[Rfam]
RNA: Small nucleolar RNA Z122
Organism: Punica granatum
RNA sequence: UUUGGGAUAUGAUGAUAUCAUAGUUUAAUUGGCUAAGGCAUCAGCCGUGCUGAAUAUUAAUUUGCACGUCAGUCUGAUCCCAAA
Numbered sequence: 001u002u003u004g005g006g007a008u009a010u011g012a013u014g015a016u017a018u019c020a021u022a023g024u025u026u027a028a029u030u031g032g033c034u035a036a037g038g039c040a041u042c043a044g045c046c047g048u049g050c051u052g053a054a055u056a057u058u059a060a061u062u063u064g065c066a067c068g069u070c071a072g073u074c075u076g077a078u079c080c081c082a083a084a
Base pairs, nucleotide, nucleotide: 001084002083003082004081005080006079007078